A member of the RNA family "6S / SsrS RNA" from Emergencia timonensis, 182 nucleotides long. The source organism's lineage runs through Bacteria, Bacillota, Clostridia, Peptostreptococcales and Emergencia. About the family: E. coli 6S RNA was the first non coding RNA to be sequenced, but its function was unknown until recently. It scores 68 bits against the family's covariance model.
[Rfam]
RNA sequence: UUUAGCCUAGAGCAUUCGUUAAGGAUUCAUAAUUGAACCUACACUUUAACAUCGGGAAUCCGAGUUCAUUCGGCCUAUGUCAAGCCGCCAACUAGAGUGGAAGACAGAAGUCGGUGACAGGGUACCCACCUAUCAUUAUGAUAGGGCGUCAAUUAUAUCCUGACGGUGCAUCUGGGUUUUUA
Numbered sequence: 001u002u003u004a005g006c007c008u009a010g011a012g013c014a015u016u017c018g019u020u021a022a023g024g025a026u027u028c029a030u031a032a033u034u035g036a037a038c039c040u041a042c043a044c045u046u047u048a049a050c051a052u053c054g055g056g057a058a059u060c061c062g063a064g065u066u067c068a069u070u071c072g073g074c075c076u077a078u079g080u081c082a083a084g085c086c087g088c089c090a091a092c093u094a095g096a097g098u099g100g101a102a103g104a105c106a107g108a109a110g111u112c113g114g115u116g117a118c119a120g121g122g123u124a125c126c127c128a129c130c131u132a133u134c135a136u137u138a139u140g141a142u143a144g145g146g147c148g149u150c151a152a153u154u155a156u157a158u159c160c161u162g163a164c165g166g167u168g169c170a171u172c173u174g175g176g177u178u179u180u181u182a
Stems, first nucleotide, its partner, number of pairs: 004178008012169004017165003030155007038146002054127003058123004065117001070114005080104002085100004